[Rfam]
RNA sequence: GGUUAUGAGCGUCAGCGACAAGCCCUGGCUUGCUGACCGGCAACCCUCCGCGGCGGUGGGGUGCCCCAGGUGACGACCCGGUGAGCCAACCCGGCCCACAAGCGCAUGCC
Numbered sequence: 001g002g003u004u005a006u007g008a009g010c011g012u013c014a015g016c017g018a019c020a021a022g023c024c025c026u027g028g029c030u031u032g033c034u035g036a037c038c039g040g041c042a043a044c045c046c047u048c049c050g051c052g053g054c055g056g057u058g059g060g061g062u063g064c065c066c067c068a069g070g071u072g073a074c075g076a077c078c079c080g081g082u083g084a085g086c087c088a089a090c091c092c093g094g095c096c097c098a099c100a101a102g103c104g105c106a107u108g109c110c
Stems, first nucleotide, its partner, number of pairs: 001078004009038001011037006021030002039065003044061003048056002081099003085095003
Dot-bracket structure: ((((....(.((((((....((......)).)))))))(((..(((.((.....))..))).))).........))))..(((.(((.....))).)))...........

Rfam assigns this 110-nucleotide RNA sequence from Branchiibius sp. NY16-3462-2 to the family "SAM (S-adenosyl methionine) riboswitch aptamer". The match comes from Rfam's covariance-model search (95 bits). Lineage of the source: Bacteria > Bacillati > Micrococcales > Dermacoccaceae > Branchiibius. On this family, see Weinberg et al., RNA 2008: "The aptamer core of SAM-IV riboswitches mimics the ligand-binding site of SAM-I riboswitches".